This 156-nucleotide RNA sequence from Selenihalanaerobacter shriftii belongs to the Rfam family "glmS glucosamine-6-phosphate activated ribozyme aptamer". On this family, see Winkler et al., Nature 2004: "Control of gene expression by a natural metabolite-responsive ribozyme".
RNA sequence: UUAAUAAUUAUAGCGCCCGAACUUAGUUAAAUCUAAGUUGACGAGGAAGAGGUGAUCGAGUUUUCGGCGGAUGCCUCUAGGUAGAGUUAGCUACCUUAAUUAACUGUUUAAACCCUAUAGGAGACCAUAGGAGUAACGGGAGUUAAACUAACAAAU
Numbered sequence: 001u002u003a004a005u006a007a008u009u010a011u012a013g014c015g016c017c018c019g020a021a022c023u024u025a026g027u028u029a030a031a032u033c034u035a036a037g038u039u040g041a042c043g044a045g046g047a048a049g050a051g052g053u054g055a056u057c058g059a060g061u062u063u064u065c066g067g068c069g070g071a072u073g074c075c076u077c078u079a080g081g082u083a084g085a086g087u088u089a090g091c092u093a094c095c096u097u098a099a100u101u102a103a104c105u106g107u108u109u110a111a112a113c114c115c116u117a118u119a120g121g122a123g124a125c126c127a128u129a130g131g132a133g134u135a136a137c138g139g140g141a142g143u144u145a146a147a148c149u150a151a152c153a154a155a156u
Stems, first nucleotide, its partner, number of pairs: 020039007048078005056067004079096006100146006114131005120125001
By type it is a riboswitch. Pairs were carried over by alignment from the consensus structure, which is taken from published work. Rfam's curators write: This entry contains a glucosamine-6-phosphate activated ribozyme that is found in the mRNA for GlmS. GlmS is an enzyme that uses fructose-6-phosphate and glutamine to generate glucosamine-6-phosphate. The ribozyme catalyses self cleavage of the glmS mRNA that is thought to regulate GlmS activity.